[Rfam]
RNA sequence: UAAUAAGUAGGGUAAUCCUUAUGUGUCUUUUUCUUGGAGGGCAGUUUGGAAUAUGAUGAUUGGCGUUCUUAUGAUACAUGAUUAACAUCUGUGUGUAAUCAAGACUUGCAACACCCUGAUUGCUCCUAUCUUAU
Dot-bracket structure: .......................((.((((((...))))))))..............................(.(..(....)...).)....(((((((.(...........).)))))))...........

Overview
The record is a 134-nucleotide sequence from Tursiops truncatus, which matches "U8 small nucleolar RNA" in Rfam. A reference for the family is Peculis et al. (2001), "The U8 snoRNA gene family: identification and characterization of distinct, functional U8 genes in Xenopus", Gene. The source organism's lineage runs through Eukaryota, Metazoa, Artiodactyla, Whippomorpha and Tursiops. The family's RNA type in Rfam is C/D-box small nucleolar RNA.